[Rfam]
RNA sequence: CAUAAAGGAGACUCCGUUAAGUACAGGCCACAUCACGUGGCUAACACGGAGUUGUUACUGGUCACGUAAC
Number, nucleotide and partner (000 for none) at each position: 001c000002a000003u000004a000005a000006a000007g000008g000009a000010g000011a052012c051013u050014c049015c048016g047017u046018u000019a000020a000021g000022u000023a000024c000025a000026g000027g041028c040029c039030a038031c037032a000033u000034c000035a000036c000037g031038u030039g029040g028041c027042u000043a000044a000045c000046a017047c016048g015049g014050a013051g012052u011053u000054g070055u069056u068057a067058c066059u000060g000061g000062u000063c000064a000065c000066g058067u057068a056069a055070c054